[Rfam]
RNA: HTH-XRE RNA
RNA sequence: GAUCAGCAUAUGGUUGGGGCAUAUUAGACAGGUAUGUAACGGAACUCCCACCAGAUAAGCUUGCAAAGGUGAUUCCCUUUUC
Numbered sequence: 001g002a003u004c005a006g007c008a009u010a011u012g013g014u015u016g017g018g019g020c021a022u023a024u025u026a027g028a029c030a031g032g033u034a035u036g037u038a039a040c041g042g043a044a045c046u047c048c049c050a051c052c053a054g055a056u057a058a059g060c061u062u063g064c065a066a067a068g069g070u071g072a073u074u075c076c077c078u079u080u081u082c
Base pairs, nucleotide, nucleotide: 013052015050016049017048018047019037020036021035022034023033024032